[Rfam]
RNA: Oocyte entry signal (OES) from oskar mRNA
Organism: Drosophila albomicans
RNA sequence: UUAAUACUUUGCUUGCACCAAAUCAAUGCCGCGGCUGAUUUAAUAUUAUCAGUGCUAAGCGAAAAAA
Numbered sequence: 001u002u003a004a005u006a007c008u009u010u011g012c013u014u015g016c017a018c019c020a021a022a023u024c025a026a027u028g029c030c031g032c033g034g035c036u037g038a039u040u041u042a043a044u045a046u047u048a049u050c051a052g053u054g055c056u057a058a059g060c061g062a063a064a065a066a067a
Stems, first nucleotide, its partner, number of pairs: 001067002008063002011060004015055004020041006